[Rfam]
About this RNA
A member of the RNA family "Small nucleolar RNA SNORA41" from Mesocricetus auratus, 132 nucleotides long. On this family, see Huttenhofer et al., EMBO J 2001: "RNomics: an experimental approach that identifies 201 candidates for novel, small, non-messenger RNAs in mouse". Rfam links the family to the GO terms RNA processing and nucleolus. Rfam describes the family as follows. ACA41 is a member of the H/ACA class of snoRNA that guide the sites of modification of uridines to pseudouridines. It is annotated as an H/ACA-box small nucleolar RNA. Taxonomically the source falls in Mesocricetus (Eukaryota, Euteleostomi, Euarchontoglires, Cricetinae).
RNA sequence: UUUCACAGCUACUGGUCUGCAACUACUCAUAUGAUAGCAGUUGUAGCAUUCCUCUGUGGGAAAGAAACUGUUACACAAUUUAAUGUCUCUUUCUUAGCCAAACUGAAAGAGGAGUAUGCCUGACAGACACAG
Numbered sequence: 001u002u003u004c005a006c007a008g009c010u011a012c013u014g015g016u017c018u019g020c021a022a023c024u025a026c027u028c029a030u031a032u033g034a035u036a037g038c039a040g041u042u043g044u045a046g047c048a049u050u051c052c053u054c055u056g057u058g059g060g061a062a063a064g065a066a067a068c069u070g071u072u073a074c075a076c077a078a079u080u081u082a083a084u085g086u087c088u089c090u091u092u093c094u095u096a097g098c099c100a101a102a103c104u105g106a107a108a109g110a111g112g113a114g115u116a117u118g119c120c121u122g123a124c125a126g127a128c129a130c131a132g
Base pairs, nucleotide, nucleotide: 003059004058005057006056017046018045019044020043021042022041023040024039073121076118077117086112087111088110089109090108091107092106093105